[Rfam]
RNA sequence: CUCUGGAGAGUGUUUACGUUUCGAUGUAAACCACCCACGAAGCAAGCAUCUAUCAUUGUAAUGGCAACGUUUUCAAUUGGAUGCGCAACUUUCUGGUAGAAGGACAGAG
Numbered sequence: 001c002u003c004u005g006g007a008g009a010g011u012g013u014u015u016a017c018g019u020u021u022c023g024a025u026g027u028a029a030a031c032c033a034c035c036c037a038c039g040a041a042g043c044a045a046g047c048a049u050c051u052a053u054c055a056u057u058g059u060a061a062u063g064g065c066a067a068c069g070u071u072u073u074c075a076a077u078u079g080g081a082u083g084c085g086c087a088a089c090u091u092u093c094u095g096g097u098a099g100a101a102g103g104a105c106a107g108a109g
Stems, first nucleotide, its partner, number of pairs: 001109005012031006033097003037092001040091003046084007
The record is a 109-nucleotide RNA from Oceanobacillus limi, which matches "Glycine riboswitch aptamer" in Rfam.